Bacteriophage Diversity-Generating Retroelement RNA: a 128-nucleotide RNA sequence.
Pairs were carried over by alignment from the consensus structure, which is taken from published work.
It is one of the family's seed sequences.
A reference for the family is Handa et al. (2025), "RNA control of reverse transcription in a diversity-generating retroelement", Nature.
By type it is a small RNA.

Nucleotides: 128
Stems, first nucleotide, its partner, number of pairs: 001028002004026006012019002060069003083128001085127005094120003103112001104110001
Number, partner (000 for none) and nucleotide at each position: 001028g002027c003000u004026c005025u006024g007023c008022a009021c010000u011000g012019g013018u014000u015000a016000c017000g018013a019012c020000c021009g022008u023007g024006c025005a026004g027002g028001c029000c030000g031000u032000c033000c034000a035000u036000a037000a038000a039000g040000u041000g042000u043000g044000g045000u046000c047000a048000g049000c050000c051000g052000g053000a054000u055000u056000a057000u058000c059000c060069u061068c062067c063000u064000u065000c066000g067062g068061g069060g070000a071000a072000u073000a074000c075000g076000c077000u078000u079000a080000u081000g082000g083128g084000u085127c086126a087125g088124g089123c090000a091000u092000a093000a094120c095119g096118c097000a098000g099000a100000g101000u102000a103112g104110u105000g106000c107000a108000a109000u110104a111000u112103c113000g114000a115000a116000a117000c118096g119095c120094g121000g122000g123089g124088c125087c126086u127085g128083c